[Rfam]
RNA sequence: CUCAUAAGUAAUAAAUGAUCCGUUUAGGUCCUUUUAACUUUGUUUAAAGUAUCGGUUUGAUCCCUUCUGUUAAUUUAAUUAAAAAAAACAUUAAAUUUAGGGAUCAAACUAAUAUUAAUUAAAUAAGUUAAGGGACCAAACUUAUAAUAAUUAAAUAAGUUAAGGACCAAAAUUUAACAUUUUUUUGAAUUAAAUUAAGAAAAAGGUUCAAACCGAAACUUGAAAUCAAGUUAAGGGACCGAUUGAACAUUUAAGCCAUACGAUU
Numbered sequence: 001c002u003c004a005u006a007a008g009u010a011a012u013a014a015a016u017g018a019u020c021c022g023u024u025u026a027g028g029u030c031c032u033u034u035u036a037a038c039u040u041u042g043u044u045u046a047a048a049g050u051a052u053c054g055g056u057u058u059g060a061u062c063c064c065u066u067c068u069g070u071u072a073a074u075u076u077a078a079u080u081a082a083a084a085a086a087a088a089c090a091u092u093a094a095a096u097u098u099a100g101g102g103a104u105c106a107a108a109c110u111a112a113u114a115u116u117a118a119u120u121a122a123a124u125a126a127g128u129u130a131a132g133g134g135a136c137c138a139a140a141c142u143u144a145u146a147a148u149a150a151u152u153a154a155a156u157a158a159g160u161u162a163a164g165g166a167c168c169a170a171a172a173u174u175u176a177a178c179a180u181u182u183u184u185u186u187g188a189a190u191u192a193a194a195u196u197a198a199g200a201a202a203a204a205g206g207u208u209c210a211a212a213c214c215g216a217a218a219c220u221u222g223a224a225a226u227c228a229a230g231u232u233a234a235g236g237g238a239c240c241g242a243u244u245g246a247a248c249a250u251u252u253a254a255g256c257c258a259u260a261c262g263a264u265u
Base pairs, nucleotide, nucleotide: 002263003262005260006259008257025242027240028239029238031236032235034234035233036232037231038230039229040228042226043225044224047221048220
The family of this 265-nucleotide RNA sequence from Medicago truncatula is "MIR2655 microRNA precursor family". The base pairs follow the family's consensus structure, which was predicted with RNAalifold. Gene Ontology terms of the family: RISC complex and miRNA-mediated post-transcriptional gene silencing.